Source information
The record is a 129-nucleotide RNA sequence from Oryza brachyantha, which matches "Small nucleolar RNA Z206" in Rfam. Gene Ontology terms of the family: nucleolus and RNA processing. A reference for the family is Chen et al. (2003), "The high diversity of snoRNAs in plants: identification and comparative study of 120 snoRNA genes from Oryza sativa", Nucleic Acids Res. The organism belongs to Oryza, within Eukaryota.

RNA sequence: CCAGCAGGCGGCGGCGGUGACGGUGAGCGCGACGGUGCGCCGGUCGACGGCGCUGCUGGGCGGCGCCGACGCGGUGCAAGGAGGAGGGCCCCAAGCUGUCGACGGCGUGCUGUGGUUCCGGCCAGCUUC
Numbered sequence: 001c002c003a004g005c006a007g008g009c010g011g012c013g014g015c016g017g018u019g020a021c022g023g024u025g026a027g028c029g030c031g032a033c034g035g036u037g038c039g040c041c042g043g044u045c046g047a048c049g050g051c052g053c054u055g056c057u058g059g060g061c062g063g064c065g066c067c068g069a070c071g072c073g074g075u076g077c078a079a080g081g082a083g084g085a086g087g088g089c090c091c092c093a094a095g096c097u098g099u100c101g102a103c104g105g106c107g108u109g110c111u112g113u114g115g116u117u118c119c120g121g122c123c124a125g126c127u128u129c
Base pairs, nucleotide, nucleotide: 004126005125007123008122